[Rfam]
RNA sequence: AUGCAUGCAUGCAUACGCAUACAUGCAUGCAUUUGCAUACAUGCAUGCAUAUGCAUACAUGCAUGCAUAUGCAUACAUGCAUGCAUGCAUAUGCAUAUGCAUACAUGCAUGCAUGCAUAUGCAUAUGCAUAUAUACAUGCAUGCAUGCAUAUGCAUAUAUACAUGCAUGCAUGCAUGCAUUUUUAUAUGCAUACAUGCAUAUGCAUGCAUACAUGCAUGCA
Number, nucleotide and partner (000 for none) at each position: 001a032002u031003g030004c029005a028006u027007g026008c025009a024010u023011g022012c000013a000014u000015a000016c000017g000018c000019a000020u000021a000022c011023a010024u009025g008026c007027a006028u005029g004030c003031a002032u001033u217034u000035g000036c000037a214038u213039a000040c000041a000042u209043g208044c207045a206046u205047g204048c203049a152050u151051a000052u149053g148054c147055a146056u000057a000058c083059a082060u081061g080062c079063a078064u077065g076066c000067a000068u000069a000070u000071g000072c000073a000074u000075a000076c065077a064078u063079g062080c061081a060082u059083g058084c000085a000086u000087g000088c000089a000090u000091a000092u000093g000094c000095a000096u000097a000098u000099g000100c000101a000102u000103a000104c000105a000106u000107g144108c143109a142110u141111g140112c139113a000114u137115g136116c000117a132118u131119a130120u129121g128122c127123a000124u000125a000126u000127g122128c121129a120130u119131a118132u117133a000134u000135a000136c115137a114138u000139g112140c111141a110142u109143g108144c107145a000146u055147g054148c053149a052150u000151a050152u049153g174154c173155a172156u171157a000158u169159a168160u167161a000162c000163a000164u000165g000166c000167a160168u159169g158170c000171a156172u155173g154174c153175a000176u000177g000178c000179a000180u000181u000182u000183u000184u000185a000186u000187a000188u199189g198190c197191a196192u000193a000194c000195a000196u191197g190198c189199a188200u000201a000202u000203g048204c047205a046206u045207g044208c043209a042210u000211a000212c000213a038214u037215g000216c000217a033218u000219g000220c000221a000
A member of the RNA family "Listeria sRNA rliA" from Ceratopteris richardii, 221 nucleotides long.
A search with the family's covariance model found it, with a score of 59 bits.
For this family Rfam cites "Identification of new noncoding RNAs in Listeria monocytogenes and prediction of mRNA targets" (Mandin et al., Nucleic Acids Res, 2007).
The family has 4 seed sequences and 15 matches in Rfam 15.1.